[Rfam]
RNA sequence: GAGCUAUGAUGACAAUUGCGCCCAACGUUGGCGGUAGGGUCUGCCACAAUCAUCUGAUUUACAGAUGAAAGUAGGCGCUUCUGAGCUC
Numbered sequence: 001g002a003g004c005u006a007u008g009a010u011g012a013c014a015a016u017u018g019c020g021c022c023c024a025a026c027g028u029u030g031g032c033g034g035u036a037g038g039g040u041c042u043g044c045c046a047c048a049a050u051c052a053u054c055u056g057a058u059u060u061a062c063a064g065a066u067g068a069a070a071g072u073a074g075g076c077g078c079u080u081c082u083g084a085g086c087u088c
Base pairs, nucleotide, nucleotide: 001088002087003086004085
This 88-nucleotide RNA from Camellia sinensis belongs to the Rfam family "small nucleolar RNA snoR114".